The family of this 261-nucleotide part of an RNA from Oceanobacillus halophilus is "Bacterial large subunit ribosomal RNA". The family's consensus secondary structure is taken from published work. A search with the family's covariance model found it, with a score of 2987 bits. The source organism's lineage runs through Bacteria, Bacillati, Caryophanales, Bacillaceae and Oceanobacillus.
RNA sequence: GGAAGUUUGAGAGGAGCUGUCCUUAGUACGAGAGGACCGGGAUGGACAUACCGCUGGUGUACCAGUUGUUCCGCCAGGAGCAUAGCUGGGUAGCUACGUAUGGAAAGGAUAAGUGCUGAAAGCAUCUAAGCAUGAAGCCCCCCUCAAGAUGAGACUUCCCAUCACUUUAAGUGAGUAAGAUCCCUCAGAGACGAUGAGGUUGAUAGGUUCGAGGUGGAAGCGUGGUGACACGUGGAGCUGACGAAUACUAAUCGAUCGAGG
Number, nucleotide and partner (000 for none) at each position: 001g159002g158003a157004a156005g155006u154007u153008u152009g000010a000011g145012a144013g143014g142015a000016g000017c045018u044019g043020u042021c041022c040023u039024u000025a000026g000027u000028a000029c000030g000031a000032g000033a000034g000035g000036a000037c000038c000039g023040g022041g021042a020043u019044g018045g017046a000047c102048a101049u100050a099051c098052c000053g000054c000055u096056g095057g094058u000059g000060u000061a000062c089063c088064a087065g086066u085067u082068g081069u080070u079071c078072c077073g000074c000075c000076a000077g072078g071079a070080g069081c068082a067083u000084a000085g066086c065087u064088g063089g062090g000091u000092a000093g000094c057095u056096a055097c000098g051099u050100a049101u048102g047103g000104a000105a000106a000107g139108g138109a000110u000111a000112a000113g133114u132115g131116c130117u129118g000119a000120a000121a000122g000123c000124a000125u000126c000127u000128a000129a117130g116131c115132a114133u113134g000135a000136a000137g000138c108139c107140c000141c000142c014143c013144u012145c011146a000147a000148g000149a000150u000151g000152a008153g007154a006155c005156u004157u003158c002159c001160c000161a000162u174163c173164a172165c000166u000167u000168u000169a000170a000171g000172u164173g163174a162175g000176u259177a000178a000179g257180a256181u255182c254183c199184c198185u197186c196187a195188g000189a000190g000191a000192c000193g000194a000195u187196g186197a185198g184199g183200u000201u000202g000203a000204u250205a249206g248207g246208u245209u244210c243211g242212a000213g239214g238215u000216g000217g000218a000219a000220g233221c232222g231223u230224g229225g000226u000227g000228a000229c224230a223231c222232g221233u220234g000235g000236a000237g000238c214239u213240g000241a000242c211243g210244a209245a208246u207247a000248c206249u205250a204251a000252u000253c000254g182255a181256u180257c179258g000259a176260g000261g000